Rfam assigns this 114-nucleotide sequence from Paenibacillus sp. PvR098 to the family "epsC RNA".
The source organism's lineage runs through Bacteria, Bacillota, Bacilli, Caryophanales and Paenibacillus.

RNA sequence: AGGUAAUGUCUACUGCACCUUUAUCAACUGUAGGCACUCGGUCAUGCUGUGGGCGGUUCGCCGCCUUAGACGUAUAUCGUCAAGGGUGUGAUGUGAGGAGGGGUUGGAUGCCCU
Numbered sequence: 001a002g003g004u005a006a007u008g009u010c011u012a013c014u015g016c017a018c019c020u021u022u023a024u025c026a027a028c029u030g031u032a033g034g035c036a037c038u039c040g041g042u043c044a045u046g047c048u049g050u051g052g053g054c055g056g057u058u059c060g061c062c063g064c065c066u067u068a069g070a071c072g073u074a075u076a077u078c079g080u081c082a083a084g085g086g087u088g089u090g091a092u093g094u095g096a097g098g099a100g101g102g103g104u105u106g107g108a109u110g111c112c113c114u
Stems, first nucleotide, its partner, number of pairs: 001020004007036007037097004041092008051066006069081004100114005